[Rfam]
RNA: Lacto-phage-1 RNA
Organism: Limosilactobacillus vaginalis
RNA sequence: ACCGGCUCUGCUAGUCUCACGGUAGCCGUGCUGUUAUCAGCAGAAGAGUACUGUAAUCUUACUCAACGGCUAAAGGAUUGC
Numbered sequence: 001a002c003c004g005g006c007u008c009u010g011c012u013a014g015u016c017u018c019a020c021g022g023u024a025g026c027c028g029u030g031c032u033g034u035u036a037u038c039a040g041c042a043g044a045a046g047a048g049u050a051c052u053g054u055a056a057u058c059u060u061a062c063u064c065a066a067c068g069g070c071u072a073a074a075g076g077a078u079u080g081c
Stems, first nucleotide, its partner, number of pairs: 001023004029042005046064004053081006